[Rfam]
RNA sequence: ACGACAUUGAGACCAUCGGUCUACCGAGCAAUAUCACCUGCUCGGUGGAAGAUCUUCCUUUCGUCGU
Numbered sequence: 001a002c003g004a005c006a007u008u009g010a011g012a013c014c015a016u017c018g019g020u021c022u023a024c025c026g027a028g029c030a031a032u033a034u035c036a037c038c039u040g041c042u043c044g045g046u047g048g049a050a051g052a053u054c055u056u057c058c059u060u061u062c063g064u065c066g067u
Base pairs, nucleotide, nucleotide: 004064005063011057012056015053016052017051020049021048022047023046024045025044026043027042028041029040
The family of this 67-nucleotide sequence from Bombyx mori is "mir-2774 microRNA precursor family". Taxonomically the source falls in Bombyx (Eukaryota, Allotriocarida, Pterygota, Aparaglossata). The family's consensus secondary structure was predicted with RNAalifold.